[Rfam]
RNA sequence: GACAUUCGGAGCAAGCGCCCUCCUCCUCCCAGCGCCGCUCCGAUCGAGACGGGCAAGUCUUCUCCUCCCAAGUUGCCCGUCGUUUCAAAUGACGCCCGCUGGAUCUCCUCCCCCAGCGGGCGUUAUUU
Numbered sequence: 001g002a003c004a005u006u007c008g009g010a011g012c013a014a015g016c017g018c019c020c021u022c023c024u025c026c027u028c029c030c031a032g033c034g035c036c037g038c039u040c041c042g043a044u045c046g047a048g049a050c051g052g053g054c055a056a057g058u059c060u061u062c063u064c065c066u067c068c069c070a071a072g073u074u075g076c077c078c079g080u081c082g083u084u085u086c087a088a089a090u091g092a093c094g095c096c097c098g099c100u101g102g103a104u105c106u107c108c109u110c111c112c113c114c115a116g117c118g119g120g121c122g123u124u125a126u127u128u
Stems, first nucleotide, its partner, number of pairs: 007042003011038002015035004048081009092123011
A member of the RNA family "Alphaproteobacterial ar14" from Rhizobium sp. Root1212, 128 nucleotides long. The source organism's lineage runs through Bacteria, Pseudomonadota, Hyphomicrobiales, Rhizobiaceae and Rhizobium. From the family's description: Smr14C2 was renamed NfeR1 (Nodule Formation Efficiency RNA) highly expressed in salt stress and during the symbiotic interaction on legume roots. Rfam links the family to the GO term biological process involved in symbiotic interaction. It scores 97 bits against the family's covariance model.